[Rfam]
RNA sequence: AUUACUAAGUUAGUGUGUUGUAAAGAAGAAAGUUAUCUUAGAUAGCCUUUGAUCAUGACGCUGUACCUUGGUUUUUUCCUGAUUAAAUAGCAGACUCCGGCCAAUAUAUGCCGAAAAGGCAAGUUUUUUUGAUGUUAUAUAGGAAAAGUCAAAUGUCUGACAAAAUGAAAGGUCAAGUUAAGUGGUUCAACGAGUCUAAAGGCUUCGGUUUCAUCACUCCUGCUGAUGGUAGCAAAGACGUUUUCGUCCACUUCUCUGCCAUUCAAGGCGCUGGUUUUAAAACUCUGGCUGAAGGCCAACAAGUUGAAUUCACCAUUGAAAAUGGUGCUAAAGGUCCAGCAGCAGCUAACGUAACUGCAAUCUAAGUUAAUUACUUAACUGAUUUCUAAAGCCCGUCAUUUUUAAUGACGGGCUUUUUC
Numbered sequence: 001a002u003u004a005c006u007a008a009g010u011u012a013g014u015g016u017g018u019u020g021u022a023a024a025g026a027a028g029a030a031a032g033u034u035a036u037c038u039u040a041g042a043u044a045g046c047c048u049u050u051g052a053u054c055a056u057g058a059c060g061c062u063g064u065a066c067c068u069u070g071g072u073u074u075u076u077u078c079c080u081g082a083u084u085a086a087a088u089a090g091c092a093g094a095c096u097c098c099g100g101c102c103a104a105u106a107u108a109u110g111c112c113g114a115a116a117a118g119g120c121a122a123g124u125u126u127u128u129u130u131g132a133u134g135u136u137a138u139a140u141a142g143g144a145a146a147a148g149u150c151a152a153a154u155g156u157c158u159g160a161c162a163a164a165a166u167g168a169a170a171g172g173u174c175a176a177g178u179u180a181a182g183u184g185g186u187u188c189a190a191c192g193a194g195u196c197u198a199a200a201g202g203c204u205u206c207g208g209u210u211u212c213a214u215c216a217c218u219c220c221u222g223c224u225g226a227u228g229g230u231a232g233c234a235a236a237g238a239c240g241u242u243u244u245c246g247u248c249c250a251c252u253u254c255u256c257u258g259c260c261a262u263u264c265a266a267g268g269c270g271c272u273g274g275u276u277u278u279a280a281a282a283c284u285c286u287g288g289c290u291g292a293a294g295g296c297c298a299a300c301a302a303g304u305u306g307a308a309u310u311c312a313c314c315a316u317u318g319a320a321a322a323u324g325g326u327g328c329u330a331a332a333g334g335u336c337c338a339g340c341a342g343c344a345g346c347u348a349a350c351g352u353a354a355c356u357g358c359a360a361u362c363u364a365a366g367u368u369a370a371u372u373a374c375u376u377a378a379c380u381g382a383u384u385u386c387u388a389a390a391g392c393c394c395g396u397c398a399u400u401u402u403u404a405a406u407g408a409c410g411g412g413c414u415u416u417u418u419c
Stems, first nucleotide, its partner, number of pairs: 004021002007018001009016001027221002031218003041212002045210001046202004051196003054192001056190001057188002060186003066155001068153002070150001077144005084139002087105002090102001110120003157172002224318006237245002248306001250304004257298002259295002263288003267284001270283001272281001323338003327335003339358004347354001361382002388416012
Background: The family of this 419-nucleotide sequence from Providencia sneebia is "cspA thermoregulator". The match comes from Rfam's covariance-model search (235 bits). A reference for the family is Giuliodori et al. (2010), "The cspA mRNA is a thermosensor that modulates translation of the cold-shock protein CspA", Mol Cell. Lineage of the source: Bacteria > Pseudomonadati > Enterobacterales > Morganellaceae > Providencia sneebia. By type it is an RNA thermoregulator. Pairs were carried over by alignment from the consensus structure, which is taken from published work.